[Rfam]
Rfam assigns this 72-nucleotide RNA sequence from Tursiops truncatus to the family "Small nucleolar RNA SNORD113/SNORD114 family". A search with the family's covariance model found it, with a score of 77 bits. NCBI's taxonomy places the organism under Eukaryota, Eumetazoa, Chordata, Eutheria, Tursiops. Its family is annotated with RNA processing and nucleolus in the Gene Ontology. About the family: The imprinted human domain at 14q32 contains two clusters of tandemly repeated small nucleolar RNAs named 14q(I) and 14q(II) snoRNAs. These two clusters are named SNORD113 and SNORD114 respectively in the HGNC approved gene symbol nomenclature. It is annotated as a C/D-box small nucleolar RNA. The family is grouped with related families in Rfam's "SNORD74 clan". On this family, see Cavaille et al., Hum Mol Genet 2002: "Identification of tandemly-repeated C/D snoRNA genes at the imprinted human 14q32 domain reminiscent of those at the Prader-Willi/Angelman syndrome region".
RNA sequence: UGGAUCGAUGAUGACUACCGGUGGCGUAUGAGUCGUGUACGAUGAAUACGUGUCUGGAGCUCUGAAGUCCGA
Number, nucleotide and partner (000 for none) at each position: 001u000002g070003g069004a068005u067006c000007g000008a000009u000010g000011a000012u000013g000014a000015c000016u000017a000018c000019c000020g000021g000022u000023g000024g000025c000026g000027u000028a000029u000030g000031a000032g000033u000034c000035g000036u000037g000038u000039a000040c000041g000042a000043u000044g000045a000046a000047u000048a000049c000050g000051u000052g000053u000054c000055u000056g000057g000058a000059g000060c000061u000062c000063u000064g000065a000066a000067g005068u004069c003070c002071g000072a000